[Rfam]
The record is a 180-nucleotide sequence from Nonomuraea jabiensis, which matches "M-box riboswitch aptamer (ykoK leader)" in Rfam.

RNA sequence: CAGGCACCUCGUGAGGUGAGGCGUCUGUCCGAAUACAGACCGCUGAACCCCACGACGUCGAGAGACGCCCAGGUAAGGACGCCUCCCCCGGCUCGAGGGGGAGGCCAAGCAGCUUUCCGCGCGGUCUUCGCGGACAUACGCCGGGCAGUGCCGAAGCUUUCACGAGAUAUGGGGUGCGCC
Numbered sequence: 001c002a003g004g005c006a007c008c009u010c011g012u013g014a015g016g017u018g019a020g021g022c023g024u025c026u027g028u029c030c031g032a033a034u035a036c037a038g039a040c041c042g043c044u045g046a047a048c049c050c051c052a053c054g055a056c057g058u059c060g061a062g063a064g065a066c067g068c069c070c071a072g073g074u075a076a077g078g079a080c081g082c083c084u085c086c087c088c089c090g091g092c093u094c095g096a097g098g099g100g101g102a103g104g105c106c107a108a109g110c111a112g113c114u115u116u117c118c119g120c121g122c123g124g125u126c127u128u129c130g131c132g133g134a135c136a137u138a139c140g141c142c143g144g145g146c147a148g149u150g151c152c153g154a155a156g157c158u159u160u161c162a163c164g165a166g167a168u169a170u171g172g173g174g175u176g177c178g179c180c
Base pairs, nucleotide, nucleotide: 005176006175007174008173009172010171011163012162015158016157017156020152021151022150025148026147027146028145029144030143031142040112042110043109047074048073049072056067057066058065059064081105082104083103084102087099088098089097115134116133117132
The literature on the family includes a 2004 paper in Proc Natl Acad Sci U S A by Barrick et al., "New RNA motifs suggest an expanded scope for riboswitches in bacterial genetic control". The base pairs follow the family's consensus structure. Lineage of the source: Bacteria > Actinomycetota > Actinomycetes > Streptosporangiales > Nonomuraea.